[Rfam]
RNA: c-di-GMP-I-GGC riboswitch aptamer
Organism: Solirubrobacter ginsenosidimutans
RNA sequence: CCCGAUAAGGGCAAACCGUCUGCGAGGACGGGGCGCAAAGCCACGGGGCUCUCCGAGCCAGCCGGGCUACCGAAG
Numbered sequence: 001c002c003c004g005a006u007a008a009g010g011g012c013a014a015a016c017c018g019u020c021u022g023c024g025a026g027g028a029c030g031g032g033g034c035g036c037a038a039a040g041c042c043a044c045g046g047g048g049c050u051c052u053c054c055g056a057g058c059c060a061g062c063c064g065g066g067c068u069a070c071c072g073a074a075g
Base pairs, nucleotide, nucleotide: 001075003072004071011036012035016031017030018029019028020027021026034061039068040067041066042065044064045063046062047059048058049057